Notes:
U4 spliceosomal RNA: a 140-nucleotide sequence from Dimorphilus gyrociliatus. A search with the family's covariance model found it, with a score of 106 bits. NCBI's taxonomy places the organism under Eukaryota, Metazoa, Bilateria, Protostomia, Dimorphilus.
RNA sequence: AGCUUUGCGCAGGAGCAAUUCCAUCGCCGAUGAGGUUAUCCGAGGCAUGGAUAUUGCUAGUUGAAAACUAUACCCAAUUCCCCGCGAUAUUCGCUUGAAAUAUUAGUGAGUAAUCGCAAUUUUUGUCGGCUAGAAAUAGC
Numbered sequence: 001a002g003c004u005u006u007g008c009g010c011a012g013g014a015g016c017a018a019u020u021c022c023a024u025c026g027c028c029g030a031u032g033a034g035g036u037u038a039u040c041c042g043a044g045g046c047a048u049g050g051a052u053a054u055u056g057c058u059a060g061u062u063g064a065a066a067a068c069u070a071u072a073c074c075c076a077a078u079u080c081c082c083c084g085c086g087a088u089a090u091u092c093g094c095u096u097g098a099a100a101u102a103u104u105a106g107u108g109a110g111u112a113a114u115c116g117c118a119a120u121u122u123u124u125g126u127c128g129g130c131u132a133g134a135a136a137u138a139g140c
Stems, first nucleotide, its partner, number of pairs: 020051005026046003034041002084117003088112008129140004